[Rfam]
RNA sequence: CACGAACUAGCUCAGCGGUAGAGCACGAGACUGAAACUCUCGCAUUUGAAGGUUCGACUCCUUCGUUCAUCG
Numbered sequence: 001c002a003c004g005a006a007c008u009a010g011c012u013c014a015g016c017g018g019u020a021g022a023g024c025a026c027g028a029g030a031c032u033g034a035a036a037c038u039c040u041c042g043c044a045u046u047u048g049a050a051g052g053u054u055c056g057a058c059u060c061c062u063u064c065g066u067u068c069a070u071c072g
Stems, first nucleotide, its partner, number of pairs: 002070001004068004010024004026042005048064005
RNA: tRNA